[Rfam]
RNA sequence: AUGCCCUACGGAUGCUCAGGUCCGCCGCAUCUCCUGGGACUUCGUGGGCUCGGCCAGCCUGGGAGCAGAUGUUGCCUCCUCAACGCUGCUCUCGGCUGGCCACCAA
Dot-bracket structure: ..(.((((((....((((((............))))))....)))))).).((((((((.((............................)).)))))))).....
This 106-nucleotide RNA from Microvirga sp. BSC39 belongs to the Rfam family "EcpR1".
Rfam's curators write: Perviously named SmelC291, SmrC10, or Sra33. According to its overproduction phenotype it was renamed Elongated Cell Phenotype RNA1. Induced by stress,EcpR1 negatively regulates cell cycle master regulatory genes dnaA and gcrA at post-transcriptional level by base pairing between its strongly conserved GC-rich loop and the target mRNAs. It's regulation is hfq-independent but requires RNase E to regulate dnaA.
The organism belongs to Microvirga, within Bacteria.
The family's RNA type in Rfam is small RNA.
For this family Rfam cites "Identification of differentially expressed small non-coding RNAs in the legume endosymbiont Sinorhizobium meliloti by comparative genomics" (del Val et al., Mol Microbiol, 2007).